The family of this 112-nucleotide sequence from Caenorhabditis japonica is "SL2 RNA". Rfam's curators write: This family represents SL2 RNA. SL2 RNA is involved in trans splicing in lower eukaryotes. Trans-splicing is a form of RNA processing. The acquisition of a spliced leader from a SL RNA is a intra-molecular reaction which precisely joins exons derived from separately transcribed RNAs. Approximately 25% of C. elegans genes are organised into polycistronic transcription units and the presence of SL2 on an mRNA is an indication the the gene is in an operon. The literature on the family includes a 2000 paper in Mol Cell Biol by Evans and Blumenthal, "trans splicing of polycistronic Caenorhabditis elegans pre-mRNAs: analysis of the SL2 RNA". The family has 30 seed sequences and 598 matches in Rfam 15.1. By type it is a non-coding RNA gene. Its Rfam clan is "SL clan". A search with the family's covariance model found it, with a score of 71 bits.

[Rfam]
RNA sequence: GGUUUUAACCCCAGUUAAUCAAGGUUAGCAUCAAUUUCGACCUUUCUUUGCACAAAGAAUGUGUUGAAGUCAACUUUUGGAACCGCUUUUCCGGGGAUUCCGGAGAGGCAAA
Dot-bracket structure: ......((.....((.(((....))).)).....)).(((((.((((((....)))))).).))))....................(.((.(..((...))...).)).)..